[Rfam]
RNA sequence: GGAUAAUGACGACUUCAUGUGAUAAGGUCUCGUUCGUCGUAAUGGUGUGAACCUUGCCGACCAUCCUGUUAUAUCACCACCCAUAAACUGAAUCC
Number, nucleotide and partner (000 for none) at each position: 001g095002g094003a093004u092005a000006a000007u000008g000009a000010c000011g000012a000013c000014u000015u000016c000017a000018u000019g000020u000021g000022a000023u000024a000025a000026g000027g000028u000029c000030u000031c000032g000033u000034u000035c000036g000037u000038c000039g000040u000041a000042a000043u000044g000045g000046u000047g055048u000049g000050a000051a000052c000053c000054u000055u047056g000057c000058c000059g000060a000061c000062c000063a000064u000065c000066c000067u000068g000069u000070u000071a000072u000073a000074u000075c000076a000077c000078c000079a000080c000081c000082c000083a000084u000085a000086a000087a000088c000089u000090g000091a000092a004093u003094c002095c001

This 95-nucleotide RNA from Helianthus annuus belongs to the Rfam family "Small nucleolar RNA Z43". Its family is annotated with RNA processing and nucleolus in the Gene Ontology. It is annotated as a C/D-box small nucleolar RNA.